RNA sequence: GUGCCCCCUAGAGUUCCCCUGACCACUUCAUUGGGGAUCUUCUCUAAUGACUUCCUACUGAAGUGUUUGGGGGAACUCCUGGUGUCAU
Numbered sequence: 001g002u003g004c005c006c007c008c009u010a011g012a013g014u015u016c017c018c019c020u021g022a023c024c025a026c027u028u029c030a031u032u033g034g035g036g037a038u039c040u041u042c043u044c045u046a047a048u049g050a051c052u053u054c055c056u057a058c059u060g061a062a063g064u065g066u067u068u069g070g071g072g073g074a075a076c077u078c079c080u081g082g083u084g085u086c087a088u
Stems, first nucleotide, its partner, number of pairs: 005084001007082002011078010022068001024065007032057004
RNA: mir-395 microRNA precursor family
Organism: Vitis vinifera